Shown here is a 102-nucleotide RNA sequence from Paenibacillus solani, a member of the family "Purine riboswitch aptamer".

RNA sequence: GUUCACAAAAUCAAAUCUUGAUGUAUAUGCCGGGGGAUAAGGCCCGGGCGUUUCUACCAGGUUACCGUAAAUGACUUGACUACAUGAAGGUUGAGAAUCCCG
Numbered sequence: 001g002u003u004c005a006c007a008a009a010a011u012c013a014a015a016u017c018u019u020g021a022u023g024u025a026u027a028u029g030c031c032g033g034g035g036g037a038u039a040a041g042g043c044c045c046g047g048g049c050g051u052u053u054c055u056a057c058c059a060g061g062u063u064a065c066c067g068u069a070a071a072u073g074a075c076u077u078g079a080c081u082a083c084a085u086g087a088a089g090g091u092u093g094a095g096a097a098u099c100c101c102g
Base pairs, nucleotide, nucleotide: 018088019087021085022084023083024082025081029049030048031047033045034044035043058078059077060076061075062074063073064072
Dot-bracket structure: .................((.(((((...(((.(((.......))).)))........(((((((.......)))))))..))))).))..............
Taxonomically the source falls in Paenibacillus (Bacteria, Bacilli, Caryophanales, Paenibacillaceae).